[Rfam]
Notes: This 55-nucleotide sequence from Macadamia integrifolia belongs to the Rfam family "Plastid-psbA-4 3UTR RNA". Plastid psbA-4 is a non-coding RNA (ncRNA) present in plastids. It was identified in inverted repeat sequences in the 3 prime untranslate region (3UTR) of photosystem II quinone-binding protein (psbA). Pairs were carried over by alignment from the consensus structure, which was predicted with LocARNA.

RNA sequence: AAGGAGCAAUACCGCAUUUCUUGUUUUAUCAAGAGGGUUGGUAUUGCUCCUUCAU
Numbered sequence: 001a002a003g004g005a006g007c008a009a010u011a012c013c014g015c016a017u018u019u020c021u022u023g024u025u026u027u028a029u030c031a032a033g034a035g036g037g038u039u040g041g042u043a044u045u046g047c048u049c050c051u052u053c054a055u
Base pairs, nucleotide, nucleotide: 001052002051003050004049005048006047007046008045009044010043011042018035019034020033021032022031023030
The sequence is in the family's curated seed alignment.